[Rfam]
RNA sequence: CCUCUUUAAAAAUGAAACGGACUGGCCUAUAUUCAUUUUGCCGUCGCAAGACGGAUAUGACGAUAAACGGCCAUCGCAAUAAACCAUUCGGACCCGGGGGCGGUACCCGGCGCCUCCACCCAAGAUCAGCAGCCAUGCUGGUUUUCGGCGGGGGCGAAACAGGAUCGACGAGGGUGUAAAAGGUGUGCUUUCGUUCGGCAUGAUACCGCCGUUAUCGGGUCAAUCCAAUAGUUGCCAAUGACAACUAUGCUCCGGUUGCUGUCGCCGCGUAAUGCGGUUCUGGUAAUCGAUUCAAAGCCCCUGCGGUUAGCCCCGUAGGGCGGGGUUCGGAGGCACCUGGCAACAGAAGCCUCCACU
Numbered sequence: 001c002c003u004c005u006u007u008a009a010a011a012a013u014g015a016a017a018c019g020g021a022c023u024g025g026c027c028u029a030u031a032u033u034c035a036u037u038u039u040g041c042c043g044u045c046g047c048a049a050g051a052c053g054g055a056u057a058u059g060a061c062g063a064u065a066a067a068c069g070g071c072c073a074u075c076g077c078a079a080u081a082a083a084c085c086a087u088u089c090g091g092a093c094c095c096g097g098g099g100g101c102g103g104u105a106c107c108c109g110g111c112g113c114c115u116c117c118a119c120c121c122a123a124g125a126u127c128a129g130c131a132g133c134c135a136u137g138c139u140g141g142u143u144u145u146c147g148g149c150g151g152g153g154g155c156g157a158a159a160c161a162g163g164a165u166c167g168a169c170g171a172g173g174g175u176g177u178a179a180a181a182g183g184u185g186u187g188c189u190u191u192c193g194u195u196c197g198g199c200a201u202g203a204u205a206c207c208g209c210c211g212u213u214a215u216c217g218g219g220u221c222a223a224u225c226c227a228a229u230a231g232u233u234g235c236c237a238a239u240g241a242c243a244a245c246u247a248u249g250c251u252c253c254g255g256u257u258g259c260u261g262u263c264g265c266c267g268c269g270u271a272a273u274g275c276g277g278u279u280c281u282g283g284u285a286a287u288c289g290a291u292u293c294a295a296a297g298c299c300c301c302u303g304c305g306g307u308u309a310g311c312c313c314c315g316u317a318g319g320g321c322g323g324g325g326u327u328c329g330g331a332g333g334c335a336c337c338u339g340g341c342a343a344c345a346g347a348a349g350c351c352u353c354c355a356c357u
Base pairs, nucleotide, nucleotide: 041054042053043052044051059195060194061193062192063191069188072185073184074183075182084174085173088171089170090169094110095109096108097107098106111156112155113154114153115152116151117150196211197210198209199208201222202221203220206218207217323338324337325336326335329354330353331352332351333350334349
The family of this 357-nucleotide RNA sequence from Pseudochelatococcus contaminans is "Alphaproteobacteria transfer-messenger RNA".
It is annotated as a non-coding RNA gene.